[Rfam]
RNA: Xanthomonas sRNA sX9
RNA sequence: AGGUACCCCGCGUGCGCUCUGGUUCCUCCGCGCCGUCCACGCCCACCUGACGACUGCUCGCCACGUCGGUUGGCU
Numbered sequence: 001a002g003g004u005a006c007c008c009c010g011c012g013u014g015c016g017c018u019c020u021g022g023u024u025c026c027u028c029c030g031c032g033c034c035g036u037c038c039a040c041g042c043c044c045a046c047c048u049g050a051c052g053a054c055u056g057c058u059c060g061c062c063a064c065g066u067c068g069g070u071u072g073g074c075u
Stems, first nucleotide, its partner, number of pairs: 003015004020035004025030001047073005